[Rfam]
RNA sequence: GGAAUUUCGUCGGCGCCUACCUCCUCCCAGGUUCCGAUGAAUACAGUCAGCCUUCACCUCCUCCCGAUCGCUGACUGGCCAAAACGACACCCGCCGCACCUCCUCCCGCGGCGGGUGUUGUCU
Numbered sequence: 001g002g003a004a005u006u007u008c009g010u011c012g013g014c015g016c017c018u019a020c021c022u023c024c025u026c027c028c029a030g031g032u033u034c035c036g037a038u039g040a041a042u043a044c045a046g047u048c049a050g051c052c053u054u055c056a057c058c059u060c061c062u063c064c065c066g067a068u069c070g071c072u073g074a075c076u077g078g079c080c081a082a083a084a085c086g087a088c089a090c091c092c093g094c095c096g097c098a099c100c101u102c103c104u105c106c107c108g109c110g111g112c113g114g115g116u117g118u119u120g121u122c123u
Stems, first nucleotide, its partner, number of pairs: 007040003011036003015032003045076007054067001087118011

A member of the RNA family "Alphaproteobacterial ar14" from Mesorhizobium zhangyense, 123 nucleotides long. Rfam classes the family as a small RNA. Rfam's curators write: Smr14C2 was renamed NfeR1 (Nodule Formation Efficiency RNA) highly expressed in salt stress and during the symbiotic interaction on legume roots.